Background: Rfam assigns this 76-nucleotide RNA from Dissostichus mawsoni to the family "mir-16 microRNA precursor family". Gene Ontology terms of the family: RISC complex and miRNA-mediated post-transcriptional gene silencing. The literature on the family includes a 2002 paper in Proc Natl Acad Sci U S A by Calin et al., "Frequent deletions and down-regulation of micro- RNA genes miR15 and miR16 at 13q14 in chronic lymphocytic leukemia". The family has 14 seed sequences and 4,705 matches in Rfam 15.1.
RNA sequence: GCCACGCUUUAGCAGCACGUAAAUAUUGGCGUGUGAGACCCCAACCCCAAUAUUGGCAGUGCUGCUUCAGUGUGGC
Dot-bracket structure: (((.(((..(((((((((.(.((((((((.................)))))))).)..))))))))..)))).)))